[Rfam]
RNA sequence: GAAAUUGUCGUCCUCGGCGGACAACAGGGCUUGGAUGAAAUGUGGCGGAAUCUCGGCGAAUUUGAUCGGCGAGCGGCGCAUCUCGCCGAACUCGGCAAUCAGUUUUCCGUCGCUGCUGAAGACCCGCAGGGGAAUCUGCAGCUCUACGCUGCGCAGGGCGUCGACAGACGGCAGGCUGGGGCUAAGAUACAGAAAUGCCCCGCUGAGCACGAGCAACAGCCCGCAGACCACGGCGAGGAAAGACCACCAGAAAAACUUCAGCAGGCGUAUCAAGGCUUUUGGAUUUCCAGAUAA
Numbered sequence: 001g002a003a004a005u006u007g008u009c010g011u012c013c014u015c016g017g018c019g020g021a022c023a024a025c026a027g028g029g030c031u032u033g034g035a036u037g038a039a040a041u042g043u044g045g046c047g048g049a050a051u052c053u054c055g056g057c058g059a060a061u062u063u064g065a066u067c068g069g070c071g072a073g074c075g076g077c078g079c080a081u082c083u084c085g086c087c088g089a090a091c092u093c094g095g096c097a098a099u100c101a102g103u104u105u106u107c108c109g110u111c112g113c114u115g116c117u118g119a120a121g122a123c124c125c126g127c128a129g130g131g132g133a134a135u136c137u138g139c140a141g142c143u144c145u146a147c148g149c150u151g152c153g154c155a156g157g158g159c160g161u162c163g164a165c166a167g168a169c170g171g172c173a174g175g176c177u178g179g180g181g182c183u184a185a186g187a188u189a190c191a192g193a194a195a196u197g198c199c200c201c202g203c204u205g206a207g208c209a210c211g212a213g214c215a216a217c218a219g220c221c222c223g224c225a226g227a228c229c230a231c232g233g234c235g236a237g238g239a240a241a242g243a244c245c246a247c248c249a250g251a252a253a254a255a256c257u258u259c260a261g262c263a264g265g266c267g268u269a270u271c272a273a274g275g276c277u278u279u280u281g282g283a284u285u286u287c288c289a290g291a292u293a294a
Stems, first nucleotide, its partner, number of pairs: 010172003014168002017165001020162002025045001027043001029041001047084002050081002054078002057075002062069001086095003102159003105155001107153001108148003112144001115142004120137003124132002176290006183283001186279002197268002200265002202262006214238001217235001221232001